Rfam assigns this 172-nucleotide RNA sequence from Paenibacillus tyrphae to the family "M-box riboswitch aptamer (ykoK leader)".
The organism belongs to Paenibacillus, within Bacteria.
About the family: M-box riboswitch, also know as ykoK leader is described as a metaloregulatory RNA that sense divalent metals and function as a genetic control element of genes related to divalent metal transport in bacteria.
[Rfam]
RNA sequence: ACAUGACCUCGUUAGGUGAGGCUCCUAUACAAACAUAGGCCACUGCCCGGAAAUAUCGAAAGAUGCCAAUGGGUAGAACAGGAACUGCCGGAUUAAGGCUUUUCUUAACGUGGCUAAGAGCAAGUGCGUUCUUUACGUUGUAUAGUGCCAAAACUCGACCAGGGGGUUAGCG
Numbered sequence: 001a002c003a004u005g006a007c008c009u010c011g012u013u014a015g016g017u018g019a020g021g022c023u024c025c026u027a028u029a030c031a032a033a034c035a036u037a038g039g040c041c042a043c044u045g046c047c048c049g050g051a052a053a054u055a056u057c058g059a060a061a062g063a064u065g066c067c068a069a070u071g072g073g074u075a076g077a078a079c080a081g082g083a084a085c086u087g088c089c090g091g092a093u094u095a096a097g098g099c100u101u102u103u104c105u106u107a108a109c110g111u112g113g114c115u116a117a118g119a120g121c122a123a124g125u126g127c128g129u130u131c132u133u134u135a136c137g138u139u140g141u142a143u144a145g146u147g148c149c150a151a152a153a154c155u156c157g158a159c160c161a162g163g164g165g166g167u168u169a170g171c172g
Base pairs, nucleotide, nucleotide: 005168006167007166008165009164010163011159012158013096015155016154017153020149021148022147025145026144027143028142029141030140031139032138039114040113041112042111043110045074046073047072048071049070054065055064056063057062081105082104083103084102087099088098089097116133117132118131119130120129